[Rfam]
RNA sequence: GUUCACUCUGCACCCAGCUGCAGCCCCAGGGGGGUGCUUUUUCUGUAUUCUAUAGAAACAUCCCCAAGUGUUGUGAUCACCUUAACCCGUCAAGGGCGAUGCAACCUUGUGGGGACACGGGG
Numbered sequence: 001g002u003u004c005a006c007u008c009u010g011c012a013c014c015c016a017g018c019u020g021c022a023g024c025c026c027c028a029g030g031g032g033g034g035u036g037c038u039u040u041u042u043c044u045g046u047a048u049u050c051u052a053u054a055g056a057a058a059c060a061u062c063c064c065c066a067a068g069u070g071u072u073g074u075g076a077u078c079a080c081c082u083u084a085a086c087c088c089g090u091c092a093a094g095g096g097c098g099a100u101g102c103a104a105c106c107u108u109g110u111g112g113g114g115a116c117a118c119g120g121g122g
Stems, first nucleotide, its partner, number of pairs: 001046002010037006018029003062113003067108002070105006078098001080096003
A member of the RNA family "Small nucleolar RNA SNORA77" from Gulo gulo, 122 nucleotides long. Rfam classes the family as an H/ACA-box small nucleolar RNA. Lineage of the source: Eukaryota > Gnathostomata > Sarcopterygii > Musteloidea > Gulo. The literature on the family includes a 2006 paper in RNA by Schattner et al., "A computational screen for mammalian pseudouridylation guide H/ACA RNAs". Rfam's curators write: ACA63 (SNORA77) is a member of the H/ACA class of snoRNAs that guide the sites of modification of uridines to pseudouridines. This snoRNA was identified by computational screening and its expression in mouse experimentally verified by Northern blot and primer extension analysis. ACA63 is proposed to guide the pseudouridylation of 18S rRNA U814. Rfam 15.1 lists 843 matches to the family in 607 species.